[Rfam]
RNA sequence: AUUUCCUUUAAUUAGGUCCAGAGAGGCCAGCAAGGAGCAAUGGAAAUAAAAUAGCAUUAUUGAGUUUUAUUUUGUCAUAGUGACUUCUUGCUGGAGCAAGAAGUUUUUUUAU
Numbered sequence: 001a002u003u004u005c006c007u008u009u010a011a012u013u014a015g016g017u018c019c020a021g022a023g024a025g026g027c028c029a030g031c032a033a034g035g036a037g038c039a040a041u042g043g044a045a046a047u048a049a050a051a052u053a054g055c056a057u058u059a060u061u062g063a064g065u066u067u068u069a070u071u072u073u074g075u076c077a078u079a080g081u082g083a084c085u086u087c088u089u090g091c092u093g094g095a096g097c098a099a100g101a102a103g104u105u106u107u108u109u110u111a112u
Stems, first nucleotide, its partner, number of pairs: 003037006013030001015028004046075009056065002080107001082105010
The record is a 112-nucleotide RNA sequence from Garciella nitratireducens, which matches "PyrR binding site" in Rfam.
A search with the family's covariance model found it, with a score of 64 bits.
For this family Rfam cites "Molecular recognition of pyr mRNA by the Bacillus subtilis attenuation regulatory protein PyrR" (Bonner et al., Nucleic Acids Res, 2001).